[Rfam]
RNA sequence: GAAAUAAAGGAGCAAUACCAACACUCUUGCUAGAACAAGAAAGUGGUUAUUGCUCC
Dot-bracket structure: ........(((((((((...((..(((((......)))))..))...)))))))))
RNA: Plastid-psbA-4 3UTR RNA